[Rfam]
RNA sequence: AAACAAAACUAGGGGUGCAUUAAAACGCUGAGAGAGCUUAAUAGCUUAACCCUUUGAACCUGAAGUGGUUAGUACCAACGCAGGGAAGUGAGUUUGCCUAUUA
Numbered sequence: 001a002a003a004c005a006a007a008a009c010u011a012g013g014g015g016u017g018c019a020u021u022a023a024a025a026c027g028c029u030g031a032g033a034g035a036g037c038u039u040a041a042u043a044g045c046u047u048a049a050c051c052c053u054u055u056g057a058a059c060c061u062g063a064a065g066u067g068g069u070u071a072g073u074a075c076c077a078a079c080g081c082a083g084g085g086a087a088g089u090g091a092g093u094u095u096g097c098c099u100a101u102u103a
Base pairs, nucleotide, nucleotide: 008089009088010087011053012052013051014050017028018027020025035046036045037044038043059084060083061082062081066077067076068075

Rfam assigns this 103-nucleotide RNA sequence from Clostridium saccharoperbutylacetonicum to the family "TPP riboswitch aptamer (THI element)". NCBI's taxonomy places the organism under Bacteria, Clostridia, Eubacteriales, Clostridium, Clostridium saccharoperbutylacetonicum N1-4.